[Rfam]
RNA sequence: AGAACGGGCCUUUCAGGCAUCCUCUCCUAAAACUUUCAAGGCCGGUCCCCUCGGGAUCGGCCCUUUUUUUGUUUUGG
Numbered sequence: 001a002g003a004a005c006g007g008g009c010c011u012u013u014c015a016g017g018c019a020u021c022c023u024c025u026c027c028u029a030a031a032a033c034u035u036u037c038a039a040g041g042c043c044g045g046u047c048c049c050c051u052c053g054g055g056a057u058c059g060g061c062c063c064u065u066u067u068u069u070u071g072u073u074u075u076g077g
Stems, first nucleotide, its partner, number of pairs: 008018004040062009
RNA: Makes More Granules Regulator RNA (mmgR)